The family of this 98-nucleotide RNA from Bordetella genomosp. 9 is "Glycine riboswitch aptamer". Taxonomically the source falls in Bordetella (Bacteria, Pseudomonadati, Betaproteobacteria, Burkholderiales). This family represents the bacterial glycine riboswitch. The pairing is the family consensus, mapped onto this sequence.
RNA sequence: ACGCAUCGUGCGGGAGAGAGCGGCCGCCGCGCGGCGAGCCGCCGCCGAAGGCGCAAUUCGCCCGGAAUCGCUCAGGCAACCGAUACCGCACCUGCCUU
Numbered sequence: 001a002c003g004c005a006u007c008g009u010g011c012g013g014g015a016g017a018g019a020g021c022g023g024c025c026g027c028c029g030c031g032c033g034g035c036g037a038g039c040c041g042c043c044g045c046c047g048a049a050g051g052c053g054c055a056a057u058u059c060g061c062c063c064g065g066a067a068u069c070g071c072u073c074a075g076g077c078a079a080c081c082g083a084u085a086c087c088g089c090a091c092c093u094g095c096c097u098u
Base pairs, nucleotide, nucleotide: 008091009090010089011088012087013086020042021041022040023039044077045076046075047073048072051071052070053069058064